[Rfam]
RNA sequence: AUGCGAAAAAGGCAAAGUCUGUGAAAGCAGAUGACGCAAAGCUAUAGGGGCUUCAUUGGCCAAUGAAUUGGUCAUUAUGCCAGCCAGCUACCGAG
Numbered sequence: 001a002u003g004c005g006a007a008a009a010a011g012g013c014a015a016a017g018u019c020u021g022u023g024a025a026a027g028c029a030g031a032u033g034a035c036g037c038a039a040a041g042c043u044a045u046a047g048g049g050g051c052u053u054c055a056u057u058g059g060c061c062a063a064u065g066a067a068u069u070g071g072u073c074a075u076u077a078u079g080c081c082a083g084c085c086a087g088c089u090a091c092c093g094a095g
Base pairs, nucleotide, nucleotide: 012037013036017032018031019030020029021028022027040089041088042087043086047085048084049081050080051079057074058073059072060071061070062069063068
c-di-GMP-I riboswitch aptamer: a 95-nucleotide RNA sequence from Halalkalibacter krulwichiae. It scores 68 bits against the family's covariance model.